[Rfam]
Nucleotides: 128
Base pairs, nucleotide, nucleotide: 002057003056004055005054006053007052008051009050020042021041022040023039024038025037026036027035028034067121068120069119070118071117072116073115079106080105081104082103083102086099088097089096
Number, partner (000 for none) and nucleotide at each position: 001000g002057g003056u004055g005054c006053a007052c008051a009050c010000a011000a012000a013000a014000c015000c016000c017000a018000a019000a020042g021041a022040u023039u024038a025037u026036u027035a028034u029000u030000c031000u032000g033000u034028g035027u036026a037025g038024u039023a040022a041021u042020c043000u044000u045000g046000u047000c048000u049000g050009g051008u052007g053006u054005g055004c056003a057002c058000a059000c060000a061000g062000c063000a064000a065000c066000a067121g068120g069119a070118c071117u072116u073115u074000g075000u076000c077000g078000c079106c080105u081104u082103u083102c084000u085000g086099g087000a088097g089096c090000u091000g092000a093000u094000g095000u096089g097088c098000c099086c100000a101000u102083g103082a104081a105080a106079g107000u108000g109000a110000a111000a112000c113000u114000g115073a116072a117071a118070g119069u120068u121067c122000u123000a124000c125000a126000c127000u128000u

This 128-nucleotide RNA sequence from Aquarana catesbeiana belongs to the Rfam family "Small nucleolar RNA SNORA68". NCBI's taxonomy places the organism under Eukaryota, Opisthokonta, Sarcopterygii, Ranoidea, Aquarana. Rfam describes the family as follows. U68 is a member of the H/ACA class of small nucleolar RNAs (snoRNAs) which act as guides in the the modification of uridines to pseudouridines.